[Rfam]
RNA sequence: AGGAGGGGUACAUCGGCUAAAAGCGCCACGUCCGCAUGUCUUCGCCGAUAUGACCAACUUCCUGUUGG
Numbered sequence: 001a002g003g004a005g006g007g008g009u010a011c012a013u014c015g016g017c018u019a020a021a022a023g024c025g026c027c028a029c030g031u032c033c034g035c036a037u038g039u040c041u042u043c044g045c046c047g048a049u050a051u052g053a054c055c056a057a058c059u060u061c062c063u064g065u066u067g068g
Base pairs, nucleotide, nucleotide: 012049013048014047015046016045017044025040027038028037054068055067056066057065058064
RNA: Bacillaceae-1 RNA
Organism: Peribacillus faecalis